EcpR1: a 114-nucleotide sequence from Cohaesibacter celericrescens.
Gene Ontology terms of the family: mRNA binding, negative regulation of cell cycle and regulation of translation in response to stress.
The family's RNA type in Rfam is small RNA.
The family's consensus secondary structure was predicted with WAR.
[Rfam]
RNA sequence: UUCCCCUGCGGAAAACUCAGGUCCGCCGCAUCUCCUGAGCCCGUAGGGCUUGGUCGGUUCAGAAGCAGCAAGAGUGGCCUCCUCAAAGUGGUCUGCAGCUGAACCGGCCAUCCU
Numbered sequence: 001u002u003c004c005c006c007u008g009c010g011g012a013a014a015a016c017u018c019a020g021g022u023c024c025g026c027c028g029c030a031u032c033u034c035c036u037g038a039g040c041c042c043g044u045a046g047g048g049c050u051u052g053g054u055c056g057g058u059u060c061a062g063a064a065g066c067a068g069c070a071a072g073a074g075u076g077g078c079c080u081c082c083u084c085a086a087a088g089u090g091g092u093c094u095g096c097a098g099c100u101g102a103a104c105c106g107g108c109c110a111u112c113c114u
Stems, first nucleotide, its partner, number of pairs: 004048007016039006052109011